Small nucleolar RNA snoR104: a 118-nucleotide RNA sequence from Triticum aestivum. Its family is annotated with RNA processing and nucleolus in the Gene Ontology.
[Rfam]
RNA sequence: UGGUGGCAUUCAAAGGACAAUAUGCCUACCUGAUACAAUCUUCCUAUACUAAAAUUGUCAUUUCCUGCUUGUAGUAUUCUAAGCAAGUUCUGCAAGUCUCAAAUGAUAGGACAGCUUC
Number, nucleotide and partner (000 for none) at each position: 001u000002g030003g029004u000005g027006g025007c024008a023009u022010u000011c000012a000013a000014a000015g000016g000017a000018c000019a000020a000021u000022a009023u008024g007025c006026c000027u005028a000029c003030c002031u000032g000033a000034u000035a000036c000037a000038a000039u000040c000041u000042u000043c000044c000045u000046a000047u000048a000049c000050u000051a000052a000053a000054a000055u000056u111057g000058u109059c000060a000061u000062u000063u000064c000065c000066u000067g097068c096069u095070u094071g093072u092073a091074g090075u000076a088077u087078u086079c000080u000081a000082a000083g000084c000085a000086a078087g077088u076089u000090c074091u073092g072093c071094a070095a069096g068097u067098c000099u000100c000101a000102a000103a000104u000105g000106a000107u000108a000109g058110g000111a056112c000113a000114g000115c000116u000117u000118c000
A reference for the family is Marker et al. (2002), "Experimental RNomics: identification of 140 candidates for small non-messenger RNAs in the plant Arabidopsis thaliana", Curr Biol. A search with the family's covariance model found it, with a score of 87 bits. It is annotated as an H/ACA-box small nucleolar RNA.